[Rfam]
Nucleotides: 114
Base pairs, nucleotide, nucleotide: 002110003109004108005107006106007105008104010103011102014099015098016092017091018090020089021088022087044075045074046073048072049071
Number, partner (000 for none) and nucleotide at each position: 001000g002110g003109c004108u005107g006106g007105u008104c009000u010103g011102a012000a013000g014099g015098u016092a017091g018090u019000u020089g021088a022087g023000u024000u025000a026000u027000c028000u029000c030000a031000a032000u033000u034000g035000a036000u037000u038000g039000u040000u041000c042000a043000c044075a045074g046073u047000u048072a049071g050000u051000u052000a053000c054000a055000g056000a057000u058000c059000c060000u061000a062000c063000g064000c065000c066000u067000u068000a069000u070000u071049c072048u073046a074045c075044u076000c077000u078000u079000u080000c081000c082000c083000c084000c085000u086000u087022c088021u089020c090018a091017c092016u093000g094000a095000a096000a097000u098015g099014c100000a101000c102011u103010u104008g105007a106006c107005u108004a109003g110002u111000u112000a113000a114000a

Overview: This 114-nucleotide sequence from Piliocolobus tephrosceles belongs to the Rfam family "Y RNA". By type it is a non-coding RNA gene. It scores 48 bits against the family's covariance model. The family has 104 seed sequences and 26,986 matches in Rfam 15.1. Taxonomically the source falls in Piliocolobus (Eukaryota, Metazoa, Gnathostomata, Dipnotetrapodomorpha).